A member of the RNA family "mir-1302 microRNA precursor family" from Propithecus coquereli, 52 nucleotides long. Taxonomically the source falls in Propithecus (Eukaryota, Teleostomi, Amniota, Euarchontoglires). It scores 63 bits against the family's covariance model. The family has 24 seed sequences and 16,160 matches in Rfam 15.1.

[Rfam]
RNA sequence: UGUCUAGUAUAGGUAUGUCCCACUCAACAUUUGGGAUGUACUUAUACUAAAA
Numbered sequence: 001u002g003u004c005u006a007g008u009a010u011a012g013g014u015a016u017g018u019c020c021c022a023c024u025c026a027a028c029a030u031u032u033g034g035g036a037u038g039u040a041c042u043u044a045u046a047c048u049a050a051a052a
Stems, first nucleotide, its partner, number of pairs: 006048007014040003018036004022031001